[Rfam]
RNA sequence: CGGGUGAUGGCCGGCGGCGGCCACUUCGUGGCAGGUGAACCUGUCCUGCCCUGCGCGCUAGCUCUGGAGAACGCUCUUGGGGGGCAGUCAGCCCCGGGGUUCCACCUGGUGCGCGCCGUCCUGCUGGCGUCAGAGCAGUGAUGAUGACGCGCCCG
Numbered sequence: 001c002g003g004g005u006g007a008u009g010g011c012c013g014g015c016g017g018c019g020g021c022c023a024c025u026u027c028g029u030g031g032c033a034g035g036u037g038a039a040c041c042u043g044u045c046c047u048g049c050c051c052u053g054c055g056c057g058c059u060a061g062c063u064c065u066g067g068a069g070a071a072c073g074c075u076c077u078u079g080g081g082g083g084g085c086a087g088u089c090a091g092c093c094c095c096g097g098g099g100u101u102c103c104a105c106c107u108g109g110u111g112c113g114c115g116c117c118g119u120c121c122u123g124c125u126g127g128c129g130u131c132a133g134a135g136c137a138g139u140g141a142u143g144a145u146g147a148c149g150c151g152c153c154c155g
Stems, first nucleotide, its partner, number of pairs: 016120006053114009065104003073100004